[Rfam]
RNA sequence: AGAGUUCAGAUGAUGAUCAAUUGCAUAGUUCAAAUGAAUGUUUGUGAUUAGAAAAGUUUUAGUCUUUCGCUCCUAUCUGAUGAACUCU
Numbered sequence: 001a002g003a004g005u006u007c008a009g010a011u012g013a014u015g016a017u018c019a020a021u022u023g024c025a026u027a028g029u030u031c032a033a034a035u036g037a038a039u040g041u042u043u044g045u046g047a048u049u050a051g052a053a054a055a056g057u058u059u060u061a062g063u064c065u066u067u068c069g070c071u072c073c074u075a076u077c078u079g080a081u082g083a084a085c086u087c088u
Base pairs, nucleotide, nucleotide: 004085005084006083007082008081
Background: The family of this 88-nucleotide sequence from Helianthus annuus is "Small nucleolar RNA snR60/Z15/Z230/Z193/J17". The organism belongs to Helianthus, within Eukaryota. The pairing is the family consensus, mapped onto this sequence. The family is grouped with related families in Rfam's "SNORD77 clan". Its family is annotated with RNA processing and nucleolus in the Gene Ontology. It scores 76 bits against the family's covariance model. Rfam classes the family as a C/D-box small nucleolar RNA.